This 52-nucleotide sequence from Suricata suricatta belongs to the Rfam family "mir-1302 microRNA precursor family". Gene Ontology terms of the family: RISC complex and miRNA-mediated post-transcriptional gene silencing. Rfam 15.1 lists 16,160 matches to the family in 135 species.
RNA sequence: UUUUUAGUGUAAGUAUAGCCCAUGCAACAUUUGGGACAUACUUACACUAAGA
Numbered sequence: 001u002u003u004u005u006a007g008u009g010u011a012a013g014u015a016u017a018g019c020c021c022a023u024g025c026a027a028c029a030u031u032u033g034g035g036a037c038a039u040a041c042u043u044a045c046a047c048u049a050a051g052a
Base pairs, nucleotide, nucleotide: 006048007047008046009045010044011043012042014040015039016038019035020034021033022031
Source information
It scores 63 bits against the family's covariance model.